[Rfam]
RNA: UnaL2 LINE 3' element
RNA sequence: CAAAUAUUUAAUUGUAAGUCGCUUUGGAUAAAAGCGUCAGCUAAAUGACAUGUA
Dot-bracket structure: ............(((....((((((.....))))))...)).)...........